[Rfam]
RNA sequence: GAUUGAGGUUGAGGAGCAGUGAUUAUUAGUAUUUAAAGAGUUAAGGCCAAUUUUUCUUUAAAGAAAGGGGUCAUUGCCGAAAUUUAGAUUCAAUUUGGUACAUUGAAUUUAGGUUGGGCUUAAAGUUAAUAACUUUAAGACUGUCAUCAGCUAAACUGGUGGAGGACUAUCUUAAUC
Numbered sequence: 001g002a003u004u005g006a007g008g009u010u011g012a013g014g015a016g017c018a019g020u021g022a023u024u025a026u027u028a029g030u031a032u033u034u035a036a037a038g039a040g041u042u043a044a045g046g047c048c049a050a051u052u053u054u055u056c057u058u059u060a061a062a063g064a065a066a067g068g069g070g071u072c073a074u075u076g077c078c079g080a081a082a083u084u085u086a087g088a089u090u091c092a093a094u095u096u097g098g099u100a101c102a103u104u105g106a107a108u109u110u111a112g113g114u115u116g117g118g119c120u121u122a123a124a125g126u127u128a129a130u131a132a133c134u135u136u137a138a139g140a141c142u143g144u145c146a147u148c149a150g151c152u153a154a155a156c157u158g159g160u161g162g163a164g165g166a167c168u169a170u171c172u173u174a175a176u177c
Stems, first nucleotide, its partner, number of pairs: 006172004011167001016077009032062008081115014116142002119139008144162007
RNA: Lysine riboswitch aptamer